[Rfam]
RNA sequence: GGGCUGGCCAGGCCCUUCAGGGCUUGUGGAAUGGGAAGGAGAAGGGAUCCUUCCUCUUCUGUGGGCCUGCUAGGUGUGGCCAAACCC
Numbered sequence: 001g002g003g004c005u006g007g008c009c010a011g012g013c014c015c016u017u018c019a020g021g022g023c024u025u026g027u028g029g030a031a032u033g034g035g036a037a038g039g040a041g042a043a044g045g046g047a048u049c050c051u052u053c054c055u056c057u058u059c060u061g062u063g064g065g066c067c068u069g070c071u072a073g074g075u076g077u078g079g080c081c082a083a084a085c086c087c
Base pairs, nucleotide, nucleotide: 002086003085005082006081007080008079009078010077012075013074014073018069019068020067021066023065024064025063026062027061028060029059030058031057033055034054035053036052037051038050
RNA: mir-3127 microRNA precursor family
Organism: Cebus imitator